[Rfam]
Nucleotides: 076
Base pairs, nucleotide, nucleotide: 002074003073004072005071006070007069010066011065012064016061017060018059021056022055023054024053025052026051027050028049029048030047
Number, partner (000 for none) and nucleotide at each position: 001000c002074u003073a004072u005071a006070u007069g008000u009000a010066c011065c012064c013000u014000g015000u016061a017060g018059a019000u020000c021056c022055g023054a024053a025052u026051u027050u028049g029048u030047g031000u032000g033000g034000a035000u036000g037000a038000a039000u040000u041000u042000u043000u044000a045000g046000u047030c048029g049028c050027a051026a052025a053024u054023u055022c056021g057000c058000u059018u060017c061016u062000u063000g064012g065011g066010g067000a068000a069007u070006a071005u072004g073003u074002a075000g076000u